[Rfam]
A member of the RNA family "Small nucleolar RNA SNORD70" from Struthio camelus, 89 nucleotides long. A reference for the family is Huttenhofer et al. (2001), "RNomics: an experimental approach that identifies 201 candidates for novel, small, non-messenger RNAs in mouse", EMBO J. snoRNA HBII-234 belongs to the C/D family of snoRNAs. Lineage of the source: Eukaryota > Craniata > Teleostomi > Struthioniformes > Struthio camelus. Rfam 15.1 lists 1,085 matches to the family in 579 species.
RNA sequence: AGGUCUGUUGUCAGUGAUGGAUUCUUGACGGAACUGAAUAUAAAUGAUUUGACCCAACGUUUCAUCGCUACCACUGAGACAACAGACUG
Numbered sequence: 001a002g003g004u005c006u007g008u009u010g011u012c013a014g015u016g017a018u019g020g021a022u023u024c025u026u027g028a029c030g031g032a033a034c035u036g037a038a039u040a041u042a043a044a045u046g047a048u049u050u051g052a053c054c055c056a057a058c059g060u061u062u063c064a065u066c067g068c069u070a071c072c073a074c075u076g077a078g079a080c081a082a083c084a085g086a087c088u089g
Base pairs, nucleotide, nucleotide: 002088003087004086005085006084007083008082009081010080011079012078